RNA sequence: UAGUAGAUGCACCCUGAUGAUGAACCUCAGCCGUUGGUUGGGGUUUUUUAU
Numbered sequence: 001u002a003g004u005a006g007a008u009g010c011a012c013c014c015u016g017a018u019g020a021u022g023a024a025c026c027u028c029a030g031c032c033g034u035u036g037g038u039u040g041g042g043g044u045u046u047u048u049u050a051u
Stems, first nucleotide, its partner, number of pairs: 003012002025043008

The record is a 51-nucleotide sequence from Leptolyngbyaceae cyanobacterium LF-bin-369, which matches "Nitrogen stress-induced RNA 1" in Rfam.
The organism belongs to Leptolyngbyaceae, within Bacteria.
The family's RNA type in Rfam is small RNA.